[Rfam]
Nucleotides: 057
Base pairs, nucleotide, nucleotide: 018037019036020035021034022033023032024031025030
Number, partner (000 for none) and nucleotide at each position: 001000u002000g003000c004000a005000a006000g007000u008000a009000u010000u011000u012000u013000a014000c015000g016000a017000u018037u019036a020035a021034g022033a023032a024031g025030c026000a027000c028000c029000u030025g031024u032023u033022u034021c035020u036019u037018a038000u039000a040000u041000a042000g043000g044000u045000c046000a047000u048000g049000u050000a051000u052000u053000a054000a055000u056000c057000u
The family of this 57-nucleotide RNA sequence from Apium graveolens is "Plastid-rps18 3UTR RNA". Rfam's curators write: Plastid rps18 is a non-coding RNA (ncRNA) present in plastids. It was identified as a short stem-loop motif in the 3 prime untranslate region (3UTR) of rps18 gene. The organism belongs to Apium, within Eukaryota. The family's consensus secondary structure was predicted with LocARNA. The family's RNA type in Rfam is cis-regulatory element.